[Rfam]
RNA sequence: AAGCAAAAACUUUGUAAGUCGCUCUGGAUAAGAGCGUCAGCUAAAUGCCUGUAG
Numbered sequence: 001a002a003g004c005a006a007a008a009a010c011u012u013u014g015u016a017a018g019u020c021g022c023u024c025u026g027g028a029u030a031a032g033a034g035c036g037u038c039a040g041c042u043a044a045a046u047g048c049c050u051g052u053a054g
Stems, first nucleotide, its partner, number of pairs: 013043001014041002020036006
Rfam assigns this 54-nucleotide sequence from Synaphobranchus kaupii to the family "UnaL2 LINE 3' element". The match comes from Rfam's covariance-model search (56 bits). It is annotated as a cis-regulatory element. Rfam's curators write: The eel long interspersed element (LINE) UnaL2 and its partner short interspersed element (SINE) share a conserved 3' tail containing a stem-loop that is critical for their retrotransposition. Presumably, the first step of retrotransposition is the recognition of their 3' tails by UnaL2-encoded reverse transcriptase. The solution structure of a 17-nucleotide RNA derived from the 3' tail of UnaL2 was determined by NMR. The source organism's lineage runs through Eukaryota, Chordata, Euteleostomi, Neopterygii and Synaphobranchus.